[Rfam]
RNA: c-di-GMP-I riboswitch aptamer
RNA sequence: AAACCGAAAAGGCAUACCUUGGGAAAUCAAGGGGCGCAAAACUAUAGGGGCUUCCUCUUCCGAUGAAGAGUUGCCAGCCAGUUGCCGAA
Numbered sequence: 001a002a003a004c005c006g007a008a009a010a011g012g013c014a015u016a017c018c019u020u021g022g023g024a025a026a027u028c029a030a031g032g033g034g035c036g037c038a039a040a041a042c043u044a045u046a047g048g049g050g051c052u053u054c055c056u057c058u059u060c061c062g063a064u065g066a067a068g069a070g071u072u073g074c075c076a077g078c079c080a081g082u083u084g085c086c087g088a089a
Stems, first nucleotide, its partner, number of pairs: 012037002017032006040083004047079002049075003056069004